[Rfam]
RNA sequence: AUUUAAAUACAACUCUUGUUAAGGUUAAUC
Numbered sequence: 001a002u003u004u005a006a007a008u009a010c011a012a013c014u015c016u017u018g019u020u021a022a023g024g025u026u027a028a029u030c
Base pairs, nucleotide, nucleotide: 009019010018011017012016

CRISPR RNA direct repeat element: a 30-nucleotide sequence from Clostridium disporicum.
The match comes from Rfam's covariance-model search (42 bits).
Gene Ontology term of the family: defense response.